[Rfam]
RNA sequence: UUUGGGACCAGUCGUGGGCAAACGAAGAGUGUUUUGUCCACUGUUGCAGUCUUCCUAGAGUAAAGUGGAGGUCUCUGUCUGCUUUAGGAGAGCCAACUAAACUGGAUCGUUCCCCUCCAUACAUG
Numbered sequence: 001u002u003u004g005g006g007a008c009c010a011g012u013c014g015u016g017g018g019c020a021a022a023c024g025a026a027g028a029g030u031g032u033u034u035u036g037u038c039c040a041c042u043g044u045u046g047c048a049g050u051c052u053u054c055c056u057a058g059a060g061u062a063a064a065g066u067g068g069a070g071g072u073c074u075c076u077g078u079c080u081g082c083u084u085u086a087g088g089a090g091a092g093c094c095a096a097c098u099a100a101a102c103u104g105g106a107u108c109g110u111u112c113c114c115c116u117c118c119a120u121a122c123a124u125g
Stems, first nucleotide, its partner, number of pairs: 004055003009049001011047002014041006024033002067118005075109001077107003081103001083101005
About this RNA:
Small Cajal body specific RNA 3: a 125-nucleotide RNA from Anas platyrhynchos. The base pairs follow the family's consensus structure, which was predicted with RNAalifold. About the family: scaRNAs are a specific class of small nuclear RNAs which localise to the Cajal bodies and guide the modification of RNA polymerase II transcribed spliceosomal RNAs U1, U2, U4, U5 and U12. Its family is annotated with Cajal body, nucleolus and RNA processing in the Gene Ontology. A reference for the family is Huttenhofer et al. (2001), "RNomics: an experimental approach that identifies 201 candidates for novel, small, non-messenger RNAs in mouse", EMBO J.